[Rfam]
RNA: SAM riboswitch aptamer (S box leader)
Organism: Alkalicoccus urumqiensis
RNA sequence: CUCUUAUCCCGAGCUGGCGGAGGGACAGGCCCGAAGAAGCCCGGCAACCAUCAUCUUUCAGGAUGAACGGUGCCAACCUGCAGAACGAAGUUUGUUCUGACCGAUAAGAG
Numbered sequence: 001c002u003c004u005u006a007u008c009c010c011g012a013g014c015u016g017g018c019g020g021a022g023g024g025a026c027a028g029g030c031c032c033g034a035a036g037a038a039g040c041c042c043g044g045c046a047a048c049c050a051u052c053a054u055c056u057u058u059c060a061g062g063a064u065g066a067a068c069g070g071u072g073c074c075a076a077c078c079u080g081c082a083g084a085a086c087g088a089a090g091u092u093u094g095u096u097c098u099g100a101c102c103g104a105u106a107a108g109a110g
Stems, first nucleotide, its partner, number of pairs: 001110008013042001016041003022032003026080004043074004048070002051066004081099006